[Rfam]
RNA sequence: GGCUAGUCUGCAGGCUGUGAAUUAUCUCCAUUGAAUGUUCAUAGUAAGUUACAGGCAGAACUUCUUGUUCUUCUCUUUCCCUCUUCUCACUAGUACACUAGACUAGUCUUAU
Numbered sequence: 001g002g003c004u005a006g007u008c009u010g011c012a013g014g015c016u017g018u019g020a021a022u023u024a025u026c027u028c029c030a031u032u033g034a035a036u037g038u039u040c041a042u043a044g045u046a047a048g049u050u051a052c053a054g055g056c057a058g059a060a061c062u063u064c065u066u067g068u069u070c071u072u073c074u075c076u077u078u079c080c081c082u083c084u085u086c087u088c089a090c091u092a093g094u095a096c097a098c099u100a101g102a103c104u105a106g107u108c109u110u111a112u
Base pairs, nucleotide, nucleotide: 001108002107003106004105005104006103007102008101014096017090018089019088020087043074044073047071048070

The family of this 112-nucleotide RNA from Theropithecus gelada is "Y RNA". Rfam classes the family as a non-coding RNA gene. The family has 104 seed sequences and 26,986 matches in Rfam 15.1. Rfam describes the family as follows. Y RNAs are components of the Ro ribonucleoprotein particle (Ro RNP), in association with Ro60 and La proteins. The Y RNAs and Ro60 and La proteins are well conserved, but the function of the Ro RNP is not known. The organism belongs to Theropithecus, within Eukaryota.